Notes
The family of this 101-nucleotide RNA sequence from Tersicoccus phoenicis is "Glycine riboswitch aptamer". The literature on the family includes a 2004 paper in Science by Mandal et al., "A glycine-dependent riboswitch that uses cooperative binding to control gene expression". The match comes from Rfam's covariance-model search (42 bits).
RNA sequence: CAACUCUGGAAAGCAGUCCGGUACGGCCGGAUUCACCGACGGUGCAAGCUGCCCAUCCACGUGCAGCGAAAGCUCUCAGGUCCCAUGACAGAGCGGGGAGG
Numbered sequence: 001c002a003a004c005u006c007u008g009g010a011a012a013g014c015a016g017u018c019c020g021g022u023a024c025g026g027c028c029g030g031a032u033u034c035a036c037c038g039a040c041g042g043u044g045c046a047a048g049c050u051g052c053c054c055a056u057c058c059a060c061g062u063g064c065a066g067c068g069a070a071a072g073c074u075c076u077c078a079g080g081u082c083c084c085a086u087g088a089c090a091g092a093g094c095g096g097g098g099a100g101g
Base pairs, nucleotide, nucleotide: 001096004093005092006091007090008089015033016032017031018030035081036080037079038077039076042075044073048067049066050065051064052063